[Rfam]
RNA sequence: AAGCGGAACGCCGAAAACGCUGACAAAGAGUAGGCA
Numbered sequence: 001a002a003g004c005g006g007a008a009c010g011c012c013g014a015a016a017a018c019g020c021u022g023a024c025a026a027a028g029a030g031u032a033g034g035c036a
Base pairs, nucleotide, nucleotide: 002021003020004019005018010035011034012033
Dot-bracket structure: .((((....[[[.....))))...........]]].

This 36-nucleotide sequence from Flavobacterium cerinum belongs to the Rfam family "DUF805b RNA". The family's consensus secondary structure is taken from published work. By type it is a cis-regulatory element. A search with the family's covariance model found it, with a score of 39 bits.